The record is a 220-nucleotide sequence from Listeria monocytogenes, which matches "Listeria sRNA rliE" in Rfam. The family's consensus secondary structure was predicted with WAR. By type it is a small RNA. Lineage of the source: Bacteria > Bacillota > Bacilli > Listeria > Listeria monocytogenes.
RNA sequence: UGAAUAAAAGACAUAAAUAUUACACUAUAAAUUAUUAAUAAAAAGUAAAUCAUCUGUCACCUCCUAGUUGUAAAAAUAGAAUAGCAGAGUUAAAUUAUUUUUGCACAUAGCUAAAAUCGUUUUUUCACACUCUAGACAUAGCAAAAACCCUAUUUUCCAUCUAAGAAAAUAGGGUUUUUUAUAUAUUUUAGCCUCUGAAAAUCCUUUUUUAGCUAUUUGU
Numbered sequence: 001u002g003a004a005u006a007a008a009a010g011a012c013a014u015a016a017a018u019a020u021u022a023c024a025c026u027a028u029a030a031a032u033u034a035u036u037a038a039u040a041a042a043a044a045g046u047a048a049a050u051c052a053u054c055u056g057u058c059a060c061c062u063c064c065u066a067g068u069u070g071u072a073a074a075a076a077u078a079g080a081a082u083a084g085c086a087g088a089g090u091u092a093a094a095u096u097a098u099u100u101u102u103g104c105a106c107a108u109a110g111c112u113a114a115a116a117u118c119g120u121u122u123u124u125u126c127a128c129a130c131u132c133u134a135g136a137c138a139u140a141g142c143a144a145a146a147a148c149c150c151u152a153u154u155u156u157c158c159a160u161c162u163a164a165g166a167a168a169a170u171a172g173g174g175u176u177u178u179u180u181a182u183a184u185a186u187u188u189u190a191g192c193c194u195c196u197g198a199a200a201a202u203c204c205u206u207u208u209u210u211a212g213c214u215a216u217u218u219g220u
Stems, first nucleotide, its partner, number of pairs: 027220006035212003040209006051070002054067003077197004084104006143179005149173003153169005